[Rfam]
RNA: T-box leader
RNA sequence: GAAAAGGCAAUGAAGAGAAAUAGUACAUAUACAAUGAAUUUCAGAGAGAAGAUGGUUGGUGCGAAUCUUUAUUUUAGUAUAUCGAAGCAGUCUCGGAGCUUUGGACCGAAUAACGGUCUCCGUUCUGAUUUCAGGGAGAUGGUUUAGUAGGCUUCAACGUAUUCCCACGUUACAGGGACACGAUAUGCUGGUAUCGUAGAGAGUGCAGAGAUUUCUCUGAAUUUAGGUGGUAACACGGAUUGUAUAUUCGCCCUAAAC
Numbered sequence: 001g002a003a004a005a006g007g008c009a010a011u012g013a014a015g016a017g018a019a020a021u022a023g024u025a026c027a028u029a030u031a032c033a034a035u036g037a038a039u040u041u042c043a044g045a046g047a048g049a050a051g052a053u054g055g056u057u058g059g060u061g062c063g064a065a066u067c068u069u070u071a072u073u074u075u076a077g078u079a080u081a082u083c084g085a086a087g088c089a090g091u092c093u094c095g096g097a098g099c100u101u102u103g104g105a106c107c108g109a110a111u112a113a114c115g116g117u118c119u120c121c122g123u124u125c126u127g128a129u130u131u132c133a134g135g136g137a138g139a140u141g142g143u144u145u146a147g148u149a150g151g152c153u154u155c156a157a158c159g160u161a162u163u164c165c166c167a168c169g170u171u172a173c174a175g176g177g178a179c180a181c182g183a184u185a186u187g188c189u190g191g192u193a194u195c196g197u198a199g200a201g202a203g204u205g206c207a208g209a210g211a212u213u214u215c216u217c218u219g220a221a222u223u224u225a226g227g228u229g230g231u232a233a234c235a236c237g238g239a240u241u242g243u244a245u246a247u248u249c250g251c252c253c254u255a256a257a258c
Base pairs, nucleotide, nucleotide: 007099008098015094016093017092018091027082028081029080030079031078037073038072039071048070049069050068051067052066053065102156103155104154105153106151107150158169159168160167206219207218208217209216210215224255225254226253227252236250237249238248239247